[Rfam]
RNA: T-box leader
Organism: Candidatus Enterococcus dunnyi
RNA sequence: GACAACGCAAUGAGAUGGAAAGUACAGCUGAAAUUUUAUCUAACAGAGAGCUUGGGUAGCUGAAAACAAGCGAUAAAUGAAAUCUGGAAAAUGGCCAUUGAGCAGCGCUUCGAGUGAAUAGUUCAUAAGACAGCGACGGGAGCACCCGUUAUAGUGCUAAAGUAUACUCAAAAAUUUUGACGUACUUGAUGAGGGUAUCUAUGUGAAUGGAUACUAAAUAGAGGUGGUAACACGCAAAAGCGUCCUCAAA
Numbered sequence: 001g002a003c004a005a006c007g008c009a010a011u012g013a014g015a016u017g018g019a020a021a022g023u024a025c026a027g028c029u030g031a032a033a034u035u036u037u038a039u040c041u042a043a044c045a046g047a048g049a050g051c052u053u054g055g056g057u058a059g060c061u062g063a064a065a066a067c068a069a070g071c072g073a074u075a076a077a078u079g080a081a082a083u084c085u086g087g088a089a090a091a092u093g094g095c096c097a098u099u100g101a102g103c104a105g106c107g108c109u110u111c112g113a114g115u116g117a118a119u120a121g122u123u124c125a126u127a128a129g130a131c132a133g134c135g136a137c138g139g140g141a142g143c144a145c146c147c148g149u150u151a152u153a154g155u156g157c158u159a160a161a162g163u164a165u166a167c168u169c170a171a172a173a174a175u176u177u178u179g180a181c182g183u184a185c186u187u188g189a190u191g192a193g194g195g196u197a198u199c200u201a202u203g204u205g206a207a208u209g210g211a212u213a214c215u216a217a218a219u220a221g222a223g224g225u226g227g228u229a230a231c232a233c234g235c236a237a238a239a240g241c242g243u244c245c246u247c248a249a250a
Stems, first nucleotide, its partner, number of pairs: 007103002015098004025086003029082001038074003050071005106135004110130002137148003194215007221247004232243004